[Rfam]
RNA sequence: UCUGUCGCGAGACAGGAAGUGAAGGAAGCAGGACUACAAACCCUGGUACUGACGAACAGGAACCGGAUAUGAGGCUACAAGGUUGGAUGAGCAAGCACAUCAUUGUGAUGUCCUAAACAUUUCUUUGGAAAUGAAUACCGAAGUAGUAGAUCCGGCAGGAAUCAGGGGAAAGAAGAUGUU
Number, nucleotide and partner (000 for none) at each position: 001u016002c015003u014004g013005u012006c011007g000008c000009g000010a000011g006012a005013c004014a003015g002016g001017a000018a000019g000020u000021g000022a000023a000024g000025g000026a000027a000028g180029c000030a000031g177032g000033a000034c000035u000036a000037c172038a000039a000040a000041c167042c166043c165044u164045g163046g162047u160048a000049c158050u157051g156052a000053c000054g000055a000056a000057c000058a000059g000060g000061a000062a000063c155064c154065g153066g152067a151068u150069a000070u000071g000072a000073g000074g147075c146076u145077a000078c143079a000080a000081g000082g139083u000084u137085g113086g112087a111088u110089g000090a000091g106092c105093a104094a103095g000096c000097a000098c000099a000100u000101c000102a000103u094104u093105g092106u091107g000108a000109u000110g088111u087112c086113c085114u000115a000116a000117a000118c000119a000120u000121u000122u000123c000124u000125u000126u000127g000128g000129a000130a000131a000132u000133g000134a000135a000136u000137a084138c000139c082140g000141a000142a000143g078144u000145a076146g075147u074148a000149g000150a068151u067152c066153c065154g064155g063156c051157a050158g049159g000160a047161a000162u046163c045164a044165g043166g042167g041168g000169a000170a000171a000172g037173a000174a000175g000176a000177u031178g000179u000180u028
This 180-nucleotide sequence from Zunongwangia atlantica belongs to the Rfam family "Group II catalytic intron D1-D4-3". The source organism's lineage runs through Bacteria, Bacteroidota, Flavobacteriaceae, Zunongwangia and Zunongwangia atlantica. A search with the family's covariance model found it, with a score of 115 bits.